[Rfam]
RNA: Mammalian CPEB3 ribozyme
RNA sequence: GGUUGUAAAUUUAAAGCCACAGCAGAAGUGCUCAUGGUGUGGCCUCUCAGAUUCCAACAAAAUCUGUGAAUUCUGCU
Numbered sequence: 001g002g003u004u005g006u007a008a009a010u011u012u013a014a015a016g017c018c019a020c021a022g023c024a025g026a027a028g029u030g031c032u033c034a035u036g037g038u039g040u041g042g043c044c045u046c047u048c049a050g051a052u053u054c055c056a057a058c059a060a061a062a063u064c065u066g067u068g069a070a071u072u073c074u075g076c077u
Base pairs, nucleotide, nucleotide: 016043017042018041021077022076023075024074025073026072027071028040029039030038048066049065050064051063052062053061